This 589-nucleotide part of an RNA from Caedimonas varicaedens belongs to the Rfam family "Bacterial small subunit ribosomal RNA".
RNA sequence: UGACGGGGGCCCGCACAAGCGGUGGAGCAUGUGGUUUAAUUCGAAGCAACGCGCAGAACCUUACCAGCUCUUGACAUGGGGAUUAUGGAGAGGAGAGAUUCUUUCCUUCAGUUCGGCUGGAUCCCGCACAGGUGCUGCAUGGCUGUCGUCAGCUCGUGUCGUGAGAUGUUGGGUUAAGUCCCGCAACGAGCGCAACCCUCAUUUUUAGUUGCCAUCAGGUUUGGCUGGGUACUCUAAAGAAACUGCCGGUGAUAAACCGGAGGAAGGUGGGGAUGACGUCAAGUCCUCAUGGCCCUUAUGGGCUGGGCUACACACGUGCUACAAUGGCGGUGACAGAGAGGAGCAAAGGGGCGACCUGGAGCGAAUCUUUAAAAGCCGUCUCAGUUCGGAUUGCACUCUGCAACUCGAGUGCAUGAAGUUGGAAUCGCUAGUAAUCGCGGAUCAGCAUGCCGCGGUGAAUACGUUCACGGGCCUUGUACACACCGCCCGUCAUACCAUGGGAGUUGAUUCAACCUUAAGGCGGUGAGCUAACCGAAAGGGAGCAGCCGACCACGGUGGGGUCAAUGACUGGGGUAAAGUCGUAACAAGG
Numbered sequence: 001u002g003a004c005g006g007g008g009g010c011c012c013g014c015a016c017a018a019g020c021g022g023u024g025g026a027g028c029a030u031g032u033g034g035u036u037u038a039a040u041u042c043g044a045a046g047c048a049a050c051g052c053g054c055a056g057a058a059c060c061u062u063a064c065c066a067g068c069u070c071u072u073g074a075c076a077u078g079g080g081g082a083u084u085a086u087g088g089a090g091a092g093g094a095g096a097g098a099u100u101c102u103u104u105c106c107u108u109c110a111g112u113u114c115g116g117c118u119g120g121a122u123c124c125c126g127c128a129c130a131g132g133u134g135c136u137g138c139a140u141g142g143c144u145g146u147c148g149u150c151a152g153c154u155c156g157u158g159u160c161g162u163g164a165g166a167u168g169u170u171g172g173g174u175u176a177a178g179u180c181c182c183g184c185a186a187c188g189a190g191c192g193c194a195a196c197c198c199u200c201a202u203u204u205u206u207a208g209u210u211g212c213c214a215u216c217a218g219g220u221u222u223g224g225c226u227g228g229g230u231a232c233u234c235u236a237a238a239g240a241a242a243c244u245g246c247c248g249g250u251g252a253u254a255a256a257c258c259g260g261a262g263g264a265a266g267g268u269g270g271g272g273a274u275g276a277c278g279u280c281a282a283g284u285c286c287u288c289a290u291g292g293c294c295c296u297u298a299u300g301g302g303c304u305g306g307g308c309u310a311c312a313c314a315c316g317u318g319c320u321a322c323a324a325u326g327g328c329g330g331u332g333a334c335a336g337a338g339a340g341g342a343g344c345a346a347a348g349g350g351g352c353g354a355c356c357u358g359g360a361g362c363g364a365a366u367c368u369u370u371a372a373a374a375g376c377c378g379u380c381u382c383a384g385u386u387c388g389g390a391u392u393g394c395a396c397u398c399u400g401c402a403a404c405u406c407g408a409g410u411g412c413a414u415g416a417a418g419u420u421g422g423a424a425u426c427g428c429u430a431g432u433a434a435u436c437g438c439g440g441a442u443c444a445g446c447a448u449g450c451c452g453c454g455g456u457g458a459a460u461a462c463g464u465u466c467a468c469g470g471g472c473c474u475u476g477u478a479c480a481c482a483c484c485g486c487c488c489g490u491c492a493u494a495c496c497a498u499g500g501g502a503g504u505u506g507a508u509u510c511a512a513c514c515u516u517a518a519g520g521c522g523g524u525g526a527g528c529u530a531a532c533c534g535a536a537a538g539g540g541a542g543c544a545g546c547c548g549a550c551c552a553c554g555g556u557g558g559g560g561u562c563a564a565u566g567a568c569u570g571g572g573g574u575a576a577a578g579u580c581g582u583a584a585c586a587a588g589g
Stems, first nucleotide, its partner, number of pairs: 001480002003477003007474007015464002019428005024322001026320008034311002040055001042053002064306007077128002079125005088105007108120004131295002134293004140289002142284003145280001147278002152191006158167003170183004197272004202240007212229002216227003243263002246260005326380006338369003343362002348357003387418001392413007434456007483588001485585001488581002493575004498570003503565008512556003519550001521548004527543003532539002

Annotation
The family's consensus secondary structure is taken from published work. The family is grouped with related families in Rfam's "SSU clan". Taxonomically the source falls in Caedimonas (Bacteria, Pseudomonadati, Alphaproteobacteria, Caedimonadaceae).